[Rfam]
RNA sequence: CUAACAGAUAUCUAUUGGCAGUAUGCCCACCUCCCUUUUUCACACACCACGCAUAGACAUACACUUUUGAUACAUAGAAGGAGGUGGACAGAAUGCCAAAGAAAUCUGUAAG
Numbered sequence: 001c002u003a004a005c006a007g008a009u010a011u012c013u014a015u016u017g018g019c020a021g022u023a024u025g026c027c028c029a030c031c032u033c034c035c036u037u038u039u040u041c042a043c044a045c046a047c048c049a050c051g052c053a054u055a056g057a058c059a060u061a062c063a064c065u066u067u068u069g070a071u072a073c074a075u076a077g078a079a080g081g082a083g084g085u086g087g088a089c090a091g092a093a094u095g096c097c098a099a100a101g102a103a104a105u106c107u108g109u110a111a112g
Stems, first nucleotide, its partner, number of pairs: 011102001015099006024090002027087008
The family of this 112-nucleotide RNA from Brassica carinata is "MIR394 microRNA precursor family". The organism belongs to Brassica, within Eukaryota.